[Rfam]
RNA sequence: CCGGCUCCGGUUCACCCCGCUCACGGGGACCCGGCGGCC
Numbered sequence: 001c002c003g004g005c006u007c008c009g010g011u012u013c014a015c016c017c018c019g020c021u022c023a024c025g026g027g028g029a030c031c032c033g034g035c036g037g038c039c
Stems, first nucleotide, its partner, number of pairs: 003039003007034004015028005
Dot-bracket structure: ..(((.((((....(((((....)))))..))))..)))
This 39-nucleotide RNA sequence from Amycolatopsis endophytica belongs to the Rfam family "L31-Actinobacteria ribosomal protein leader". The source organism's lineage runs through Bacteria, Actinomycetota, Pseudonocardiales, Pseudonocardiaceae and Amycolatopsis. Rfam classes the family as a cis-regulatory leader.